FMN riboswitch aptamer (RFN element): a 170-nucleotide RNA sequence from Corynebacterium sp. ATCC 6931. A search with the family's covariance model found it, with a score of 92 bits.
RNA sequence: UCGCAUUCUCAGGGCGAGGUGAAAUUCCUCACCGGUGGUGAAGCUGCGGCUGACGCAGACAAGUCCACGAGCGCCCUACCUGUGGCCAGAAGGGUCAUCAGGUAGGGGACAAGCAGAUUUCGGUUGGAAUCCGAAACCGACGGUCAUAGUCCGGAUGAAAGAGAAGGAGU
Numbered sequence: 001u002c003g004c005a006u007u008c009u010c011a012g013g014g015c016g017a018g019g020u021g022a023a024a025u026u027c028c029u030c031a032c033c034g035g036u037g038g039u040g041a042a043g044c045u046g047c048g049g050c051u052g053a054c055g056c057a058g059a060c061a062a063g064u065c066c067a068c069g070a071g072c073g074c075c076c077u078a079c080c081u082g083u084g085g086c087c088a089g090a091a092g093g094g095u096c097a098u099c100a101g102g103u104a105g106g107g108g109a110c111a112a113g114c115a116g117a118u119u120u121c122g123g124u125u126g127g128a129a130u131c132c133g134a135a136a137c138c139g140a141c142g143g144u145c146a147u148a149g150u151c152c153g154g155a156u157g158a159a160a161g162a163g164a165a166g167g168a169g170u
Base pairs, nucleotide, nucleotide: 004167006165007164008163009162010161017029018028019027031150032149033139034138035068036067037066038065063137064136071114072113119135120134121133122132123131141153142152143151
Dot-bracket structure: ...(.(((((......(((.......))).[[((((((........................[[))))..((........................................))....(((((.......)))))]])).(((.....]]))).......))))).)...

The family's consensus secondary structure is taken from published work. The source organism's lineage runs through Bacteria, Bacillati, Actinomycetota, Corynebacteriaceae and Corynebacterium.